Record summary: This 77-nucleotide RNA sequence from Betta splendens belongs to the Rfam family "Small nucleolar RNA SNORD83". It scores 44 bits against the family's covariance model.

[Rfam]
RNA sequence: GCCAGAUGAUGAGUUGAGUAGCUGCAUCAGCUCUCGGGCUGUGAUGACCUGCUAUCUAUCACCCUUUUCUGAUGGCU
Numbered sequence: 001g002c003c004a005g006a007u008g009a010u011g012a013g014u015u016g017a018g019u020a021g022c023u024g025c026a027u028c029a030g031c032u033c034u035c036g037g038g039c040u041g042u043g044a045u046g047a048c049c050u051g052c053u054a055u056c057u058a059u060c061a062c063c064c065u066u067u068u069c070u071g072a073u074g075g076c077u
Stems, first nucleotide, its partner, number of pairs: 001076004030039003

Source information:
On this family, see Jady and Kiss, Nucleic Acids Res 2000: "Characterisation of the U83 and U84 small nucleolar RNAs: two novel 2'-O-ribose methylation guide RNAs that lack complementarities to ribosomal RNAs". Pairs were carried over by alignment from the consensus structure, which was predicted with PFOLD. The family has 7 seed sequences and 1,393 matches in Rfam 15.1.